[Rfam]
The record is a 123-nucleotide RNA sequence from Muntiacus reevesi, which matches "Small nucleolar RNA SNORA40" in Rfam. Rfam's curators write: The snoRNA ACA 40 belongs to the H/ACA family of snoRNAs and guides the pseudouridylation of 28S rRNA subunit at position U4565. NB This family has a high threshold value to exclude a large number of closely related sequences that do not appear to have conserved H and ACA boxes, and may be pseudogenes. Pairs were carried over by alignment from the consensus structure, which was predicted with RNAalifold. A reference for the family is Ofengand and Bakin (1997), "Mapping to nucleotide resolution of pseudouridine residues in large subunit ribosomal RNAs from representative eukaryotes, prokaryotes, archaebacteria, mitochondria and chloroplasts", J Mol Biol. Its family is annotated with nucleolus and RNA processing in the Gene Ontology. Lineage of the source: Eukaryota > Craniata > Euteleostomi > Dipnotetrapodomorpha > Muntiacus.

RNA sequence: AGCAGUUGUGUUUGUUUUUAAUUUGUGGACAAAGACUUACAGAUAAGUGCAAAAAUAAAUCAUUUUUUGUAACCCAGAAUUCUUUGUUCAGUAUGAGUUUUGAUGCAGAUAAAAAGGAACAAU
Numbered sequence: 001a002g003c004a005g006u007u008g009u010g011u012u013u014g015u016u017u018u019u020a021a022u023u024u025g026u027g028g029a030c031a032a033a034g035a036c037u038u039a040c041a042g043a044u045a046a047g048u049g050c051a052a053a054a055a056u057a058a059a060u061c062a063u064u065u066u067u068u069g070u071a072a073c074c075c076a077g078a079a080u081u082c083u084u085u086g087u088u089c090a091g092u093a094u095g096a097g098u099u100u101u102g103a104u105g106c107a108g109a110u111a112a113a114a115a116g117g118a119a120c121a122a123u
Base pairs, nucleotide, nucleotide: 002050003049004048006046007045008044009043011041014036015035016034017033018032019031022027060119063116065114066113067112068111069110075102076101077100078099079098080097081096082095084093